A member of the RNA family "Archaeal large subunit ribosomal RNA" from Salinigranum rubrum, 532 nucleotides of a longer RNA. The match comes from Rfam's covariance-model search (2817 bits). The base pairs follow the family's consensus structure, which is taken from published work. Its family is annotated with ribosome and structural constituent of ribosome in the Gene Ontology.
[Rfam]
RNA sequence: CUACUGUACUGGCUGGUGAAUGGCUCGGCUCGAGAGCCGACGAAGGACGUGCCAAGCUGCGAAAAGCCUGAGGGAGCCGCACGGAGGCGAAGAACUCAGGAUCUCCGAAUGGGAAUCCCCACCGCAAUUGCCUCGCGCAAUGGGGAACGCUCCGAAUUGAAACAUCUCAGUAGGAGCAGGAAAAGAACGCAAAAGCGAUGUCGUCAGUAACGGCGAGUAAACGCGACACAGUCCAAACCGAAUCCCUCACGGGACAUGUGGUGUUCGGACUGACUCUCACUAUCCGACCAUCGAACUGAAGUCUCCUGGAAUGGAGCACGAUACAGGGUGACAGUCCCGUAAGUUCGAUCAGUACGAUACGCGUCAGUUCCAGAGUAGCAGGGGUUGGAUAUCCCUUGUGAAGGUCCCAGGCAUCAACUGGGAAGACUAAACACUCCUCGAGACCGAUAGCGAACAAGUAGCGUGAGCGAACGCUGAAAAGCACCCCGAGAAGGGCGGUGCAAUAGGGCCUGAAAUCAGUCAGUGAUGGAAC
Numbered sequence: 001c002u003a004c005u006g007u008a009c010u011g012g013c014u015g016g017u018g019a020a021u022g023g024c025u026c027g028g029c030u031c032g033a034g035a036g037c038c039g040a041c042g043a044a045g046g047a048c049g050u051g052c053c054a055a056g057c058u059g060c061g062a063a064a065a066g067c068c069u070g071a072g073g074g075a076g077c078c079g080c081a082c083g084g085a086g087g088c089g090a091a092g093a094a095c096u097c098a099g100g101a102u103c104u105c106c107g108a109a110u111g112g113g114a115a116u117c118c119c120c121a122c123c124g125c126a127a128u129u130g131c132c133u134c135g136c137g138c139a140a141u142g143g144g145g146a147a148c149g150c151u152c153c154g155a156a157u158u159g160a161a162a163c164a165u166c167u168c169a170g171u172a173g174g175a176g177c178a179g180g181a182a183a184a185g186a187a188c189g190c191a192a193a194a195g196c197g198a199u200g201u202c203g204u205c206a207g208u209a210a211c212g213g214c215g216a217g218u219a220a221a222c223g224c225g226a227c228a229c230a231g232u233c234c235a236a237a238c239c240g241a242a243u244c245c246c247u248c249a250c251g252g253g254a255c256a257u258g259u260g261g262u263g264u265u266c267g268g269a270c271u272g273a274c275u276c277u278c279a280c281u282a283u284c285c286g287a288c289c290a291u292c293g294a295a296c297u298g299a300a301g302u303c304u305c306c307u308g309g310a311a312u313g314g315a316g317c318a319c320g321a322u323a324c325a326g327g328g329u330g331a332c333a334g335u336c337c338c339g340u341a342a343g344u345u346c347g348a349u350c351a352g353u354a355c356g357a358u359a360c361g362c363g364u365c366a367g368u369u370c371c372a373g374a375g376u377a378g379c380a381g382g383g384g385u386u387g388g389a390u391a392u393c394c395c396u397u398g399u400g401a402a403g404g405u406c407c408c409a410g411g412c413a414u415c416a417a418c419u420g421g422g423a424a425g426a427c428u429a430a431a432c433a434c435u436c437c438u439c440g441a442g443a444c445c446g447a448u449a450g451c452g453a454a455c456a457a458g459u460a461g462c463g464u465g466a467g468c469g470a471a472c473g474c475u476g477a478a479a480a481g482c483a484c485c486c487c488g489a490g491a492a493g494g495g496c497g498g499u500g501c502a503a504u505a506g507g508g509c510c511u512g513a514a515a516u517c518a519g520u521c522a523g524u525g526a527u528g529g530a531a532c
Stems, first nucleotide, its partner, number of pairs: 007525010022510001023474002027445002029442006035435002045106003048061003067100006076088003111120003127141005148179001149177005159166002189196002200227005210218002230428004238261003271366004281359004295344003301317001303316004320324001326338003378399007406422005461468002